[Rfam]
The family of this 176-nucleotide sequence is "MIR807 microRNA precursor family". On this family, see Luo et al., FEBS Lett 2006: "Rice embryogenic calli express a unique set of microRNAs, suggesting regulatory roles of microRNAs in plant post-embryogenic development".
RNA sequence: AACCACACUAUCAAUGAAUGGAUGCAUCUGUGAUAUGACGUGGUUGUUACACCUAGGAUAAGGACGUGACAUCCUAUUACCAGCCAUCGCAUGAAAUUAAUAGGAUGCCACGUCUUUAUCCUAGGUGGAACAACCAUGUUAUCUCAUAGACGAAUCCAUUUAUUGAUAGUGUGGUU
Dot-bracket structure: (((((((.(((((((.(((.(((.(.((.((((.(((((.((((((((..((.((.((....(((....((((((((((......((........))))))))))))....)))....)).)).))..)))))))).))))).)))).)).).))).))).))))))).)))))))
Numbered sequence: 001a002a003c004c005a006c007a008c009u010a011u012c013a014a015u016g017a018a019u020g021g022a023u024g025c026a027u028c029u030g031u032g033a034u035a036u037g038a039c040g041u042g043g044u045u046g047u048u049a050c051a052c053c054u055a056g057g058a059u060a061a062g063g064a065c066g067u068g069a070c071a072u073c074c075u076a077u078u079a080c081c082a083g084c085c086a087u088c089g090c091a092u093g094a095a096a097u098u099a100a101u102a103g104g105a106u107g108c109c110a111c112g113u114c115u116u117u118a119u120c121c122u123a124g125g126u127g128g129a130a131c132a133a134c135c136a137u138g139u140u141a142u143c144u145c146a147u148a149g150a151c152g153a154a155u156c157c158a159u160u161u162a163u164u165g166a167u168a169g170u171g172u173g174g175u176u
Stems, first nucleotide, its partner, number of pairs: 001176007009168007017160003021156003025152001027150002030147004035142005041136008051126002054123002057120002063114003070107010086097002

Pairs were carried over by alignment from the consensus structure, which was predicted with WAR.